[Rfam]
The record is a 212-nucleotide sequence from Hansschlegelia plantiphila, which matches "permuted transfer-messenger RNA" in Rfam. About the family: Bacterial tmRNA, also known as 10Sa RNA or SsrA, is named for its dual tRNA and mRNA-like properties.

RNA sequence: GGUGAUAAACGUCCGCCGUAAUAAACCCUUCGGACCCGGGGGCAGUACCCGGCGCCUCCACCAAAAUCCGCGCGAGCCGCGGGUUUCGGCGGGGGCGAAAUAGGAUCGACGGGGGCGUAAAGGGUGGGCUUUUGCCCGGCAUGGCUCCACCGUUAUCGGGCCAUUCUAUAGUUGCCAACGACAACUACAGCUCGGUUGCUCUGGCCGCGUGA
Numbered sequence: 001g002g003u004g005a006u007a008a009a010c011g012u013c014c015g016c017c018g019u020a021a022u023a024a025a026c027c028c029u030u031c032g033g034a035c036c037c038g039g040g041g042g043c044a045g046u047a048c049c050c051g052g053c054g055c056c057u058c059c060a061c062c063a064a065a066a067u068c069c070g071c072g073c074g075a076g077c078c079g080c081g082g083g084u085u086u087c088g089g090c091g092g093g094g095g096c097g098a099a100a101u102a103g104g105a106u107c108g109a110c111g112g113g114g115g116c117g118u119a120a121a122g123g124g125u126g127g128g129c130u131u132u133u134g135c136c137c138g139g140c141a142u143g144g145c146u147c148c149a150c151c152g153u154u155a156u157c158g159g160g161c162c163a164u165u166c167u168a169u170a171g172u173u174g175c176c177a178a179c180g181a182c183a184a185c186u187a188c189a190g191c192u193c194g195g196u197u198g199c200u201c202u203g204g205c206c207g208c209g210u211g212a
Stems, first nucleotide, its partner, number of pairs: 001136005014126004026115003030112003036052005053097007137152003

The family's RNA type in Rfam is non-coding RNA gene.
The match comes from Rfam's covariance-model search (142 bits).
Pairs were carried over by alignment from the consensus structure, which is taken from published work.
A reference for the family is Mao et al. (2010), "Variations on the tmRNA gene", RNA Biol.